[Rfam]
RNA sequence: UAGGGGAGUCGGGGUUUGGAUCCCCUCCCCAAGCCCAGGAUAACUCUUAAAGUGGAGGGGAC
Number, nucleotide and partner (000 for none) at each position: 001u000002a000003g000004g000005g000006g000007a000008g041009u040010c039011g000012g036013g035014g034015u033016u031017u000018g029019g028020a000021u000022c060023c059024c058025c057026u056027c055028c019029c018030c000031a016032a000033g015034c014035c013036c012037a000038g000039g010040a009041u008042a000043a000044c000045u000046c000047u000048u000049a000050a000051a000052g000053u000054g000055g027056a026057g025058g024059g023060g022061a000062c000
The record is a 62-nucleotide RNA from Myotis lucifugus, which matches "Gag/pol translational readthrough site" in Rfam.
Rfam 15.1 lists 3,368 matches to the family in 94 species.
A reference for the family is ten Dam et al. (1990), "RNA pseudoknots: translational frameshifting and readthrough on viral RNAs", Virus Genes.
Rfam classes the family as a cis-regulatory element.